A member of the RNA family "M-box riboswitch aptamer (ykoK leader)" from Clostridium fungisolvens, 168 nucleotides long.
On this family, see Barrick et al., Proc Natl Acad Sci U S A 2004: "New RNA motifs suggest an expanded scope for riboswitches in bacterial genetic control".
Gene Ontology terms of the family: regulation of gene expression and response to magnesium ion.
The base pairs follow the family's consensus structure.
Lineage of the source: Bacteria > Bacillati > Bacillota > Clostridiaceae > Clostridium.
Rfam's curators write: M-box riboswitch, also know as ykoK leader is described as a metaloregulatory RNA that sense divalent metals and function as a genetic control element of genes related to divalent metal transport in bacteria.
RNA sequence: AUAUUUCAUUGUUAGGUGAGGCUCCUACAAGAAUGCACGCUACUGCCCGGAAACAUCGAGAGAUGCCAAUGGGUCAACAGGUUUUAUCGAAGCAAGGUAUAACUUAACGUAGCUAGACCAAGAGAGGUCUUAAGUUUUGUAGUGCUAAAACUCAACGUAGUGAUAUUA
Numbered sequence: 001a002u003a004u005u006u007c008a009u010u011g012u013u014a015g016g017u018g019a020g021g022c023u024c025c026u027a028c029a030a031g032a033a034u035g036c037a038c039g040c041u042a043c044u045g046c047c048c049g050g051a052a053a054c055a056u057c058g059a060g061a062g063a064u065g066c067c068a069a070u071g072g073g074u075c076a077a078c079a080g081g082u083u084u085u086a087u088c089g090a091a092g093c094a095a096g097g098u099a100u101a102a103c104u105u106a107a108c109g110u111a112g113c114u115a116g117a118c119c120a121a122g123a124g125a126g127g128u129c130u131u132a133a134g135u136u137u138u139g140u141a142g143u144g145c146u147a148a149a150a151c152u153c154a155a156c157g158u159a160g161u162g163a164u165a166u167u168a
Stems, first nucleotide, its partner, number of pairs: 006163005011156002013095001015152003020146003025142008039113005045074005054065004080104004086098003115130003